[Rfam]
RNA sequence: UUAAGUUAACCAAAUAAAAUAUGUCAUCUCCUUUAAUUAUACACAUCAGCCUCAAUUGAAACAAGCUUGAGGUUUUAGGACUUACUGAGGCAAUGCGUAUAAUUAAAGGAGGGACAUAUUUUAUGUGUUUAACUUAAUU
Numbered sequence: 001u002u003a004a005g006u007u008a009a010c011c012a013a014a015u016a017a018a019a020u021a022u023g024u025c026a027u028c029u030c031c032u033u034u035a036a037u038u039a040u041a042c043a044c045a046u047c048a049g050c051c052u053c054a055a056u057u058g059a060a061a062c063a064a065g066c067u068u069g070a071g072g073u074u075u076u077a078g079g080a081c082u083u084a085c086u087g088a089g090g091c092a093a094u095g096c097g098u099a100u101a102a103u104u105a106a107a108g109g110a111g112g113g114a115c116a117u118a119u120u121u122u123a124u125g126u127g128u129u130u131a132a133c134u135u136a137a138u139u
Stems, first nucleotide, its partner, number of pairs: 001137009011127002014124012028111015044095003049091006
This 139-nucleotide RNA sequence from Anisodus acutangulus belongs to the Rfam family "MIR7993 microRNA precursor family". The organism belongs to Anisodus, within Eukaryota. Its family is annotated with RISC complex and miRNA-mediated post-transcriptional gene silencing in the Gene Ontology.